mir-182 microRNA precursor family: a 77-nucleotide RNA from Xenopus tropicalis. Its Rfam clan is "mir-182 clan".
RNA sequence: GGCAGUGUUUGGCAAUGGUAGAACUCACACUGGUGAGCUAUGAAGAUCCGGUGGUUCUAGACUUGCCAACUAUGGCC
Numbered sequence: 001g002g003c004a005g006u007g008u009u010u011g012g013c014a015a016u017g018g019u020a021g022a023a024c025u026c027a028c029a030c031u032g033g034u035g036a037g038c039u040a041u042g043a044a045g046a047u048c049c050g051g052u053g054g055u056u057c058u059a060g061a062c063u064u065g066c067c068a069a070c071u072a073u074g075g076c077c
Base pairs, nucleotide, nucleotide: 002076003075005073006072009069010068011067012066013065014064015063019059020058021057022056023055024054028053029052030051031050032049033048
The literature on the family includes a 2009 paper in Mol Reprod Dev by Tesfaye et al., "Identification and expression profiling of microRNAs during bovine oocyte maturation using heterologous approach".
The source organism's lineage runs through Eukaryota, Dipnotetrapodomorpha, Tetrapoda, Amphibia and Silurana.